The record is a 75-nucleotide RNA from Nothobranchius furzeri, which matches "Small nucleolar RNA SNORD2" in Rfam. It is annotated as a C/D-box small nucleolar RNA. For this family Rfam cites "Identification of a novel box C/D snoRNA from mouse nucleolar cDNA library" (Zhou et al., Gene, 2004). Lineage of the source: Eukaryota > Teleostei > Euacanthomorphacea > Aplocheiloidei > Nothobranchius. Its family is annotated with nucleolus and RNA processing in the Gene Ontology.
RNA sequence: GAGUGAUAUGAUGGUAUACCAUCUUUCGGGACUGACUCUUGAUGUGGAGAGUUCCUUUUGCUUUACUGAUCACUC
Numbered sequence: 001g002a003g004u005g006a007u008a009u010g011a012u013g014g015u016a017u018a019c020c021a022u023c024u025u026u027c028g029g030g031a032c033u034g035a036c037u038c039u040u041g042a043u044g045u046g047g048a049g050a051g052u053u054c055c056u057u058u059u060g061c062u063u064u065a066c067u068g069a070u071c072a073c074u075c
Stems, first nucleotide, its partner, number of pairs: 001075006